[Rfam]
A member of the RNA family "mir-927 microRNA precursor family" from Drosophila ananassae, 86 nucleotides long. For this family Rfam cites "Evolutionary flux of canonical microRNAs and mirtrons in Drosophila" (Berezikov et al., Nat Genet, 2010). The family has 16 seed sequences and 174 matches in Rfam 15.1. A search with the family's covariance model found it, with a score of 87 bits. Pairs were carried over by alignment from the consensus structure, which was predicted with RNAalifold.
Nucleotides: 086
Base pairs, nucleotide, nucleotide: 011079012078014077015076016075017074018073019072020071021070023068024067025066028063029062030061031060032059033058034057036055037054
Number, partner (000 for none) and nucleotide at each position: 001000a002000g003000g004000g005000u006000a007000u008000u009000g010000u011079g012078g013000a014077g015076u016075u017074u018073u019072a020071g021070a022000a023068u024067u025066c026000c027000u028063a029062c030061g031060c032059u033058u034057u035000a036055c037054c038000g039000u040000u041000g042000c043000a044000u045000a046000u047000g048000a049000a050000a051000u052000u053000a054037g055036g056000c057034a058033a059032a060031g061030c062029g063028u064000u065000u066025g067024g068023a069000u070021u071020c072019u073018g074017g075016a076015a077014c078012c079011c080000u081000a082000u083000g084000u085000a086000u